[Rfam]
RNA sequence: UGAGUGUUAUGAUGUUGGAAUUAUAAUAAUUCUUAGUCUAGCUCUGGUCUACCACUAGGAGAGGCUCCUAGUG
Numbered sequence: 001u002g003a004g005u006g007u008u009a010u011g012a013u014g015u016u017g018g019a020a021u022u023a024u025a026a027u028a029a030u031u032c033u034u035a036g037u038c039u040a041g042c043u044c045u046g047g048u049c050u051a052c053c054a055c056u057a058g059g060a061g062a063g064g065c066u067c068c069u070a071g072u073g
Stems, first nucleotide, its partner, number of pairs: 002044004011038003017033006053073009
Record summary:
Rfam assigns this 73-nucleotide RNA from Streptococcus mutans to the family "L17 ribosomal protein downstream element". The source organism's lineage runs through Bacteria, Bacillota, Lactobacillales, Streptococcaceae and Streptococcus mutans. The family's consensus secondary structure is taken from published work. It is one of the family's seed sequences.